[Rfam]
RNA sequence: ACUGCAUACAAACCCAAAGAGCAUUGUUUAUAAAUAAAAUGUUCUUGUCAUGUGUGCAGAUAUGAAAUGUACCUUGUCGCCUUUCAAGAGCUGAAGUGUUUUUGAAAGUGAAAUUGAAGGUCCUACAAUU
Dot-bracket structure: .((((((((.........(((((((.(........).))))))).......)))))))).........(.(((((.....(((((((((((......)))))))))))........))))).).......

The record is a 130-nucleotide RNA sequence from Anolis carolinensis, which matches "Small nucleolar RNA SNORA68" in Rfam. Rfam's curators put it in the seed alignment. Rfam describes the family as follows. U68 is a member of the H/ACA class of small nucleolar RNAs (snoRNAs) which act as guides in the the modification of uridines to pseudouridines. The family's RNA type in Rfam is H/ACA-box small nucleolar RNA. The family has 26 seed sequences and 1,079 matches in Rfam 15.1.